[Rfam]
RNA: Lysine riboswitch aptamer
RNA sequence: AAAUACUAUAGAGGAGCCUUCUAUAAGAGUAAAUAGUGGAGCAGGCAAGCUAAGAAACUAUUGAAAGGAUAAGAAGGCCGAAUUGUUUAAGUAGGCAUACUUAAUCAAUGGCAACAAUUCAUAACAGUUUGUUGCUCUUUGGAAGCAUUGGUGCUAUAGUCUUA
Numbered sequence: 001a002a003a004u005a006c007u008a009u010a011g012a013g014g015a016g017c018c019u020u021c022u023a024u025a026a027g028a029g030u031a032a033a034u035a036g037u038g039g040a041g042c043a044g045g046c047a048a049g050c051u052a053a054g055a056a057a058c059u060a061u062u063g064a065a066a067g068g069a070u071a072a073g074a075a076g077g078c079c080g081a082a083u084u085g086u087u088u089a090a091g092u093a094g095g096c097a098u099a100c101u102u103a104a105u106c107a108a109u110g111g112c113a114a115c116a117a118u119u120c121a122u123a124a125c126a127g128u129u130u131g132u133u134g135c136u137c138u139u140u141g142g143a144a145g146c147a148u149u150g151g152u153g154c155u156a157u158a159g160u161c162u163u164a
Stems, first nucleotide, its partner, number of pairs: 006159006016078006022071003032062006082109004087104007110136008119127001